[Rfam]
The family of this 64-nucleotide RNA from Methylomonas denitrificans is "int-alpA RNA". The family has 167 seed sequences and 577 matches in Rfam 15.1. It scores 57 bits against the family's covariance model. Acidobacteria (1 example), Planctomycetes (1 example), Proteobacteria. The organism belongs to Methylomonas, within Bacteria.
RNA sequence: ACCAAGCCUAGCCCGACGGGGCGAAAGCCGGUCUCCUUGCCGGUUGGCUUGGUUCCUAUCAGGG
Numbered sequence: 001a002c003c004a005a006g007c008c009u010a011g012c013c014c015g016a017c018g019g020g021g022c023g024a025a026a027g028c029c030g031g032u033c034u035c036c037u038u039g040c041c042g043g044u045u046g047g048c049u050u051g052g053u054u055c056c057u058a059u060c061a062g063g064g
Base pairs, nucleotide, nucleotide: 001053002052003051004050005049006048007047008046011022012021013020014019028043029042030041031040038064
It is annotated as a small RNA.